RNA: Small nucleolar RNA Z157/R69/R10
RNA sequence: UUUUGUGCGUUGAUGAAGCACUUUGUGGACUAGAGUUUCUGAUCAUGGGCUCUUCUUCCCAUUAUGUUUGACGACAAACCCUUGGCUGUCUGAGUGCAAAU
Numbered sequence: 001u002u003u004u005g006u007g008c009g010u011u012g013a014u015g016a017a018g019c020a021c022u023u024u025g026u027g028g029a030c031u032a033g034a035g036u037u038u039c040u041g042a043u044c045a046u047g048g049g050c051u052c053u054u055c056u057u058c059c060c061a062u063u064a065u066g067u068u069u070g071a072c073g074a075c076a077a078a079c080c081c082u083u084g085g086c087u088g089u090c091u092g093a094g095u096g097c098a099a100a101u
Base pairs, nucleotide, nucleotide: 002100003099004098005097006096007095008094036073038071039070043064045062046061047060048059
Dot-bracket structure: .(((((((...........................(.((...(.((((..........)))).).....)).)....................))))))).